skipping-rope RNA: a 78-nucleotide RNA.
[Rfam]
RNA sequence: AGUCGACGAGGGCGGAACAGGCAGCCGCCACGCCUUAGUGGUCUUAAAGAGAUGCGGGUAGGUCAUCCCGCCGUGGCU
Numbered sequence: 001a002g003u004c005g006a007c008g009a010g011g012g013c014g015g016a017a018c019a020g021g022c023a024g025c026c027g028c029c030a031c032g033c034c035u036u037a038g039u040g041g042u043c044u045u046a047a048a049g050a051g052a053u054g055c056g057g058g059u060a061g062g063u064c065a066u067c068c069c070g071c072c073g074u075g076g077c078u
Base pairs, nucleotide, nucleotide: 001078002077003076004075005074007073008072011029012028013027014026015025020064021063022062031049032042033041034040054071055070056069057068058067

The family's RNA type in Rfam is small RNA.